[Rfam]
RNA sequence: UGAUUCAAGGGACAAAUGGACACAAAACGGAUGCUUGCAUACGUAUUUGUGUCUAUGAGGACCGCCAAAACAUGAGGAGGCAGCUAUUUGCGCAGUAAAUAUGCGAAUUCCGAAUGUUUUCGUGAUUUUGAGAGUACAAAAUACGGAAAAAUCACGUAUGGCUCA
Numbered sequence: 001u002g003a004u005u006c007a008a009g010g011g012a013c014a015a016a017u018g019g020a021c022a023c024a025a026a027a028c029g030g031a032u033g034c035u036u037g038c039a040u041a042c043g044u045a046u047u048u049g050u051g052u053c054u055a056u057g058a059g060g061a062c063c064g065c066c067a068a069a070a071c072a073u074g075a076g077g078a079g080g081c082a083g084c085u086a087u088u089u090g091c092g093c094a095g096u097a098a099a100u101a102u103g104c105g106a107a108u109u110c111c112g113a114a115u116g117u118u119u120u121c122g123u124g125a126u127u128u129u130g131a132g133a134g135u136a137c138a139a140a141a142u143a144c145g146g147a148a149a150a151a152u153c154a155c156g157u158a159u160g161g162c163u164c165a
Stems, first nucleotide, its partner, number of pairs: 001165003005161003010062001013059001016056010029042001031040003067120007076111004083104002085101007123154007134144003
The family of this 165-nucleotide RNA from Firmicutes bacterium CAG:56 is "Clostridiales-1 RNA".
Taxonomically the source falls in Bacillota (Bacteria, Bacillati).